About this RNA
The family of this 69-nucleotide RNA sequence from Streptomyces actinomycinicus is "ASpks TB sRNA". The family's RNA type in Rfam is antisense RNA. It scores 67 bits against the family's covariance model.
RNA sequence: CUUGAGGGACCCCAGCCACAGCGGCCGGUCCCGGUCCUGCCCGUAGGCGGCCAGCAGGGCGCCCGCCUC
Numbered sequence: 001c002u003u004g005a006g007g008g009a010c011c012c013c014a015g016c017c018a019c020a021g022c023g024g025c026c027g028g029u030c031c032c033g034g035u036c037c038u039g040c041c042c043g044u045a046g047g048c049g050g051c052c053a054g055c056a057g058g059g060c061g062c063c064c065g066c067c068u069c
Stems, first nucleotide, its partner, number of pairs: 015025003031065001032059001037054003041050003